[Rfam]
RNA: Bacterial RNase P class A
Organism: [Clostridium] methylpentosum
Nucleotides: 328
Stems, first nucleotide, its partner, number of pairs: 001324003005320006011313001012294007020031004036311003040308005045204004052234004057200005062076005077091001078089004092195002097193002099189003113136002115132007144162002147159003163184001164182001166181006208251004218242001226238004258277008
Number, partner (000 for none) and nucleotide at each position: 001324c002323g003322a004000g005320u006319a007318g008317g009316c010315u011313g012294u013293g014292u015291g016290g017289c018288a019000g020031c021030g022029c023028c024000g025000a026000a027000a028023g029022g030021u031020g032000a033000g034000g035000a036311a037310a038309g039000u040308c041307c042306g043305a044304g045204c046203a047202u048201c049000a050000c051000a052234g053233a054232g055231c056000a057200g058199g059198a060197u061196a062076c063075c064074u065073g066072c067000u068000a069000a070000c071000g072066g073065c074064a075063g076062g077091c078089g079088g080087a081086g082000g083000c084000g085000a086081c087080u088079c089078u090000a091077g092195g093194g094000a095000a096000a097193g098192u099189g100188c101187a102000a103000c104000a105000g106000a107000a108000a109000u110000a111000u112000a113136c114135c115132g116131c117130c118129g119128g120127g121126g122000c123000a124000u125000g126121c127120c128119c129118c130117g131116g132115u133000a134000a135114g136113g137000a138000u139000g140000g141000a142000a143000a144162g145161g146000c147159g148158a149157g150000g151000u152000a153000a154000g155000a156000g157149c158148u159147c160000a161145c162144c163184g164182g165000a166181a167180u168179g169178c170177g171176g172000g173000g174000a175000a176171c177170c178169g179168c180167a181166u182164u183000g184163c185000c186000c187101u188100g189099c190000a191000a192098a193097c194093c195092c196061u197060a198059u199058c200057c201048g202047a203046u204045g205000c206000a207000a208251c209250a210249u211248c212000g213000a214000c215000u216000g217000g218242g219000a220000g221000g222000u223000u224000a225000u226238c227237g228236u229235c230000g231055g232054c233053u234052c235229g236228a237227c238226g239000c240000u241000c242218c243000c244000g245000a246000a247000g248211g249210a250209u251208g252000g253000c254000u255000g256000g257000a258277g259276c260275g261274c262273u263272g264271u265270a266000g267000c268000a269000a270265u271264a272263c273262a274261g275260c276259g277258u278000c279000g280000a281000g282000a283000u284000a285000g286000a287000u288018u289017g290016u291015c292014a293013c294012g295000u296000a297000a298000a299000c300000a301000g302000a303000a304044c305043u306042c307041g308040g309038c310037u311036u312000a313011u314000a315010g316009g317008c318007u319006u320005a321000g322003u323002c324001g325000c326000u327000a328000c